[Rfam]
RNA sequence: UCGCGAAGAUCCCAGCAGAGAGGUGUGUGCACUCCAUGGUUGAGGCCUCUCUAACAAAUCUUUAUCUUCGCAUAGGAAGGAACAGAGGCCGUGAAUUCGUGGAUGUGUGAUUGGUUUAUGGUUCCAUUACAUCUGUAGACACGGUUACAUCUUU
Numbered sequence: 001u002c003g004c005g006a007a008g009a010u011c012c013c014a015g016c017a018g019a020g021a022g023g024u025g026u027g028u029g030c031a032c033u034c035c036a037u038g039g040u041u042g043a044g045g046c047c048u049c050u051c052u053a054a055c056a057a058a059u060c061u062u063u064a065u066c067u068u069c070g071c072a073u074a075g076g077a078a079g080g081a082a083c084a085g086a087g088g089c090c091g092u093g094a095a096u097u098c099g100u101g102g103a104u105g106u107g108u109g110a111u112u113g114g115u116u117u118a119u120g121g122u123u124c125c126a127u128u129a130c131a132u133c134u135g136u137a138g139a140c141a142c143g144g145u146u147a148c149a150u151c152u153u154u
Stems, first nucleotide, its partner, number of pairs: 003071007011020001013018001025051001027049001032044003036040001088145006102133002105130002107127003
RNA: Small nucleolar RNA snoR145
Organism: Oryza sativa